[Rfam]
RNA sequence: AGGUGGCAAUGAUGAUUUUUCUUAUUUGUUCACCUGACAAUAUAUGAAGGUGUUCAGUCACUACCUCAUCUGAUGCCAUCU
Numbered sequence: 001a002g003g004u005g006g007c008a009a010u011g012a013u014g015a016u017u018u019u020u021c022u023u024a025u026u027u028g029u030u031c032a033c034c035u036g037a038c039a040a041u042a043u044a045u046g047a048a049g050g051u052g053u054u055c056a057g058u059c060a061c062u063a064c065c066u067c068a069u070c071u072g073a074u075g076c077c078a079u080c081u
Stems, first nucleotide, its partner, number of pairs: 002080006